[Rfam]
RNA sequence: UAUUGUGGUGGUUUAUAUAUUUGGCUGAUCUGUAACUGUAUCAGAGUGGCCUUAAACUACCACAGAAAUCAGAAAGGAGAAGGCUAUGCUGAGAACUUCUUUCAAGCUUUUAGUUUUCAGCUUUUUGUUCAGCUCCUACAGAA
Number, nucleotide and partner (000 for none) at each position: 001u000002a000003u000004u000005g063006u062007g061008g060009u059010g058011g057012u000013u000014u000015a000016u000017a000018u000019a000020u000021u000022u000023g051024g050025c049026u000027g047028a000029u045030c044031u043032g042033u000034a000035a000036c000037u000038g000039u000040a000041u000042c032043a031044g030045a029046g000047u027048g000049g025050c024051c023052u000053u000054a000055a000056a000057c011058u010059a009060c008061c007062a006063c005064a000065g000066a000067a000068a000069u000070c000071a000072g000073a000074a000075a000076g136077g135078a134079g133080a000081a000082g000083g000084c000085u000086a000087u000088g000089c000090u000091g000092a000093g000094a000095a000096c000097u000098u000099c000100u000101u000102u000103c127104a126105a125106g124107c000108u000109u000110u000111u000112a000113g000114u000115u000116u000117u000118c000119a000120g000121c000122u000123u000124u106125u105126u104127g103128u000129u000130c000131a000132g000133c079134u078135c077136c076137u000138a000139c000140a000141g000142a000143a000